[Rfam]
RNA: MIR480 microRNA precursor family
RNA sequence: UAAUCUAUCCAGAAAAAAUCCUUAUUUAGUUACGACGGACUAAUACCUGACUGUUUAAAAUCACUUGUUAUCACAAGUCCAAUUACGUCAGUAUAUUUGUUCUAAUUCAAUUUUAAUUUUUUGUUUUCAUAAGUAGAUA
Numbered sequence: 001u002a003a004u005c006u007a008u009c010c011a012g013a014a015a016a017a018a019u020c021c022u023u024a025u026u027u028a029g030u031u032a033c034g035a036c037g038g039a040c041u042a043a044u045a046c047c048u049g050a051c052u053g054u055u056u057a058a059a060a061u062c063a064c065u066u067g068u069u070a071u072c073a074c075a076a077g078u079c080c081a082a083u084u085a086c087g088u089c090a091g092u093a094u095a096u097u098u099g100u101u102c103u104a105a106u107u108c109a110a111u112u113u114u115a116a117u118u119u120u121u122u123g124u125u126u127u128c129a130u131a132a133g134u135a136g137a138u139a
Base pairs, nucleotide, nucleotide: 004137005136006135007134008132012128014126015125018122024117025116028112029111030110031109